[Rfam]
Rfam assigns this 117-nucleotide sequence to the family "Plastid-psbA-1 3UTR RNA".
Pairs were carried over by alignment from the consensus structure, which was predicted with LocARNA.
The sequence is in the family's curated seed alignment.
It is annotated as a cis-regulatory element.
RNA sequence: UCGAAGCUCCAUCUACAAAUGGAUAAGGACUCGGUCGUAGUGUAUAGGAGUUUUUGAAAAUAAGGGAGCAAUAACCACUUUCUUGUUCUAAACAAGAUGGGGUAUUGCUCCCUUAUU
Numbered sequence: 001u002c003g004a005a006g007c008u009c010c011a012u013c014u015a016c017a018a019a020u021g022g023a024u025a026a027g028g029a030c031u032c033g034g035u036c037g038u039a040g041u042g043u044a045u046a047g048g049a050g051u052u053u054u055u056g057a058a059a060a061u062a063a064g065g066g067a068g069c070a071a072u073a074a075c076c077a078c079u080u081u082c083u084u085g086u087u088c089u090a091a092a093c094a095a096g097a098u099g100g101g102g103u104a105u106u107g108c109u110c111c112c113u114u115a116u117u
Stems, first nucleotide, its partner, number of pairs: 008023005062114012076100001080096002084092001